Rfam assigns this 56-nucleotide sequence from Erythrobacter insulae to the family "terC RNA".

[Rfam]
RNA sequence: CACACGGACCGGGCCCCUCUGGCGAGCAAUCCUGCUCGUGAUGUCGGACGUAACCU
Numbered sequence: 001c002a003c004a005c006g007g008a009c010c011g012g013g014c015c016c017c018u019c020u021g022g023c024g025a026g027c028a029a030u031c032c033u034g035c036u037c038g039u040g041a042u043g044u045c046g047g048a049c050g051u052a053a054c055c056u
Stems, first nucleotide, its partner, number of pairs: 007049001009047004022039007
Pairs were carried over by alignment from the consensus structure, which is taken from published work.